[Rfam]
RNA sequence: GGUGGAAUUCUUCCCAGCUCCGACGGAAUGGCGCUCGUGGUUAGUUCGGCCGUCUUGUAUCACGCGAGCGUUUGUAUACCCGUGCGACUCAAGGCGGCGGAACUAGUCACGAGCGCCCUUCCAUCGGAGCUAGGUAGAAUCUCACCA
Numbered sequence: 001g002g003u004g005g006a007a008u009u010c011u012u013c014c015c016a017g018c019u020c021c022g023a024c025g026g027a028a029u030g031g032c033g034c035u036c037g038u039g040g041u042u043a044g045u046u047c048g049g050c051c052g053u054c055u056u057g058u059a060u061c062a063c064g065c066g067a068g069c070g071u072u073u074g075u076a077u078a079c080c081c082g083u084g085c086g087a088c089u090c091a092a093g094g095c096g097g098c099g100g101a102a103c104u105a106g107u108c109a110c111g112a113g114c115g116c117c118c119u120u121c122c123a124u125c126g127g128a129g130c131u132a133g134g135u136a137g138a139a140u141c142u143c144a145c146c147a
Stems, first nucleotide, its partner, number of pairs: 001146002004143002007140005013134002016131008025122004030117015046101002049098009060087002063084004
MIR3454 microRNA precursor family: a 147-nucleotide RNA from Ectocarpus siliculosus.